[Rfam]
RNA sequence: AAUGCAGUGCAGGGGAGCCGAACCGGAAGGCUAGGCUGAGAAAGGCAUGACGCCUGACCCUUAGAACCUGUUGGUUAGAACCAUCGUAGGGAGCAGCACAUGAGCGUGA
Numbered sequence: 001a002a003u004g005c006a007g008u009g010c011a012g013g014g015g016a017g018c019c020g021a022a023c024c025g026g027a028a029g030g031c032u033a034g035g036c037u038g039a040g041a042a043a044g045g046c047a048u049g050a051c052g053c054c055u056g057a058c059c060c061u062u063a064g065a066a067c068c069u070g071u072u073g074g075u076u077a078g079a080a081c082c083a084u085c086g087u088a089g090g091g092a093g094c095a096g097c098a099c100a101u102g103a104g105c106g107u108g109a
Base pairs, nucleotide, nucleotide: 008095009094010093011061012060013059014058017036018035019034021032043055044054045053046052067090068089069088070087072083073082074081
RNA: TPP riboswitch aptamer (THI element)
Organism: Bifidobacterium boum